[Rfam]
Nucleotides: 161
Base pairs, nucleotide, nucleotide: 012120013119014118015117016048017047018046020044023042024041025040027038049089050088051087053086055083056082057081059079060078061077062075063074091115092114093113094111095110096109098107099106136160137159138158139157140156144153145152146151
Number, partner (000 for none) and nucleotide at each position: 001000a002000u003000a004000c005000u006000u007000a008000c009000c010000u011000g012120g013119a014118c015117g016048g017047g018046g019000u020044c021000u022000a023042u024041g025040g026000c027038u028000g029000a030000u031000c032000a033000u034000g035000a036000a037000g038027g039000u040025c041024c042023a043000u044020g045000u046018c047017c048016u049089a050088g051087g052000u053086u054000u055083g056082u057081g058000a059079c060078u061077u062075c063074c064000a065000u066000u067000g068000c069000a070000c071000u072000u073000u074063g075062g076000a077061a078060g079059g080000g081057c082056g083055c084000u085000c086053g087051c088050c089049u090000a091115a092114g093113a094111u095110c096109u097000c098107c099106c100000c101000a102000u103000u104000g105000a106099g107098g108000g109096a110095g111094a112000g113093u114092c115091u116000a117015c118014g119013u120012c121000a122000u123000a124000a125000u126000u127000u128000g129000u130000u131000c132000c133000u134000g135000a136160g137159g138158g139157g140156g141000u142000a143000c144153g145152c146151g147000u148000u149000c150000g151146c152145g153144c154000a155000g156140c157139c158138c159137u160136u161000g

A member of the RNA family "U1 spliceosomal RNA" from Papaver nudicaule, 161 nucleotides long. U1 is a small nuclear RNA (snRNA) component of the spliceosome (involved in pre-mRNA splicing). Its 5' end forms complementary base pairs with the 5' splice junction, thus defining the 5' donor site of an intron. There are significant differences in sequence and secondary structure between metazoan and yeast U1 snRNAs, the latter being much longer (568 nucleotides as compared to 164 nucleotides in human). Nevertheless, secondary structure predictions suggest that all U1 snRNAs share a 'common core' consisting of helices I, II, the proximal region of III, and IV. This family does not contain the larger yeast sequences. Rfam links the family to the GO terms U1 snRNP, mRNA 5'-splice site recognition and pre-mRNA 5'-splice site binding. The family's RNA type in Rfam is spliceosomal small nuclear RNA. Rfam 15.1 lists 40,184 matches to the family in 1,499 species.